[Rfam]
RNA sequence: UGACGGGGACCCGCACAAGCAGCGGAGCGUGUGGUUUAAUUCGAUGCAACGCGAAGAACCUUACCAAGUCUUGACAUGCAGAUGCACCAGCGGUAAUGCGCUGUCCCUUCGGGGCGUUUGCACAGGUGCUGCAUGGCUGUCGUCAGCUCGUGUCGUGAGAUGUUGGGUUAAGUCCCGCAACGAGCGCAACCCCUACUGCCUAUUACAACUUCUAGGCGGAACUGCCCUCACGGGAGGAAGGCGGGGAUGACGUCAAGUCAGCACGGCCCUUACGACUUGGGCGACACACACGCUACAAUGGCCAGUAACAAAGGGAUGCCAACCCGCGAGGGGGAGCCAAGCUCAAAAACCUGGUCUCAGUUCAGAUUGCAGGCUGAAACUCGCCUGCAUGAAGGUGGAGUUGCUAGUAACCGUAGGUCAGCACACUACGGUGAAUACGUUCCCGGGUCUUGUACACACCGCCCGUCACACCACGAAAGUCGGCAACACCUGAAGCCGCCAGGCUAACUCUUCGGAGAGGCAGGCGUCGAGGGUGGGGUUGGUGAUUGGGGUGAAGUCGUAACAAGGUAGCUGUACCGGAAGGUGCGGCUGGAUCACCUC
Numbered sequence: 001u002g003a004c005g006g007g008g009a010c011c012c013g014c015a016c017a018a019g020c021a022g023c024g025g026a027g028c029g030u031g032u033g034g035u036u037u038a039a040u041u042c043g044a045u046g047c048a049a050c051g052c053g054a055a056g057a058a059c060c061u062u063a064c065c066a067a068g069u070c071u072u073g074a075c076a077u078g079c080a081g082a083u084g085c086a087c088c089a090g091c092g093g094u095a096a097u098g099c100g101c102u103g104u105c106c107c108u109u110c111g112g113g114g115c116g117u118u119u120g121c122a123c124a125g126g127u128g129c130u131g132c133a134u135g136g137c138u139g140u141c142g143u144c145a146g147c148u149c150g151u152g153u154c155g156u157g158a159g160a161u162g163u164u165g166g167g168u169u170a171a172g173u174c175c176c177g178c179a180a181c182g183a184g185c186g187c188a189a190c191c192c193c194u195a196c197u198g199c200c201u202a203u204u205a206c207a208a209c210u211u212c213u214a215g216g217c218g219g220a221a222c223u224g225c226c227c228u229c230a231c232g233g234g235a236g237g238a239a240g241g242c243g244g245g246g247a248u249g250a251c252g253u254c255a256a257g258u259c260a261g262c263a264c265g266g267c268c269c270u271u272a273c274g275a276c277u278u279g280g281g282c283g284a285c286a287c288a289c290a291c292g293c294u295a296c297a298a299u300g301g302c303c304a305g306u307a308a309c310a311a312a313g314g315g316a317u318g319c320c321a322a323c324c325c326g327c328g329a330g331g332g333g334g335a336g337c338c339a340a341g342c343u344c345a346a347a348a349a350c351c352u353g354g355u356c357u358c359a360g361u362u363c364a365g366a367u368u369g370c371a372g373g374c375u376g377a378a379a380c381u382c383g384c385c386u387g388c389a390u391g392a393a394g395g396u397g398g399a400g401u402u403g404c405u406a407g408u409a410a411c412c413g414u415a416g417g418u419c420a421g422c423a424c425a426c427u428a429c430g431g432u433g434a435a436u437a438c439g440u441u442c443c444c445g446g447g448u449c450u451u452g453u454a455c456a457c458a459c460c461g462c463c464c465g466u467c468a469c470a471c472c473a474c475g476a477a478a479g480u481c482g483g484c485a486a487c488a489c490c491u492g493a494a495g496c497c498g499c500c501a502g503g504c505u506a507a508c509u510c511u512u513c514g515g516a517g518a519g520g521c522a523g524g525c526g527u528c529g530a531g532g533g534u535g536g537g538g539u540u541g542g543u544g545a546u547u548g549g550g551g552u553g554a555a556g557u558c559g560u561a562a563c564a565a566g567g568u569a570g571c572u573g574u575a576c577c578g579g580a581a582g583g584u585g586c587g588g589c590u591g592g593a594u595c596a597c598c599u600c
Base pairs, nucleotide, nucleotide: 001456002455003453004452005451007450008449009448010447011446012445013444015440016439019404020403021402022401023400024296026294027293028292029291030290031289032288033287034285035284040055041054042053043052064280065279066278067277068276069275070274077122078121080119081118082117083116084115088103089102090101091100092099105114106113107112125269126268128267129266130265131264134263135262136258137257138256139254141252142251146185147184148183149182150181151180152161153160154159164177165176166175167174191246192245193244194243196219197218198217199216200215201214202213222237223236225234226233227232300356301355302354303353304352305351313344314343315342318337319336323332324331325330363394368389369388370387371386372385373384374383410432411431412430413429414428415427416426459566461563464559465558469553470552471551472550474548475547476546479543480542481541482540483539484538487535488534489533490532495528497526498525499524500523503521504520505519508517509516568591569590570589571588572587573586574585575584576583577582
Overview: The family of this 600-nucleotide part of an RNA from Ktedonobacter racemifer is "Bacterial small subunit ribosomal RNA". The sequence is in the family's curated seed alignment. Clan: SSU clan. The organism belongs to Ktedonobacter racemifer, within Bacteria. The family's consensus secondary structure is taken from published work.